A member of the RNA family "Acido-Lenti-1 RNA" from Chryseobacterium sp. RU37D, 46 nucleotides long. The family's consensus secondary structure is taken from published work.
[Rfam]
RNA sequence: AAUAGGAUUUUCAUCCUAUUCUGUUUUAAAUCGUCCCUUCAGGACU
Numbered sequence: 001a002a003u004a005g006g007a008u009u010u011u012c013a014u015c016c017u018a019u020u021c022u023g024u025u026u027u028a029a030a031u032c033g034u035c036c037c038u039u040c041a042g043g044a045c046u
Base pairs, nucleotide, nucleotide: 001020002019003018004017005016006015007014008013033045034044035043036042
A search with the family's covariance model found it, with a score of 39 bits.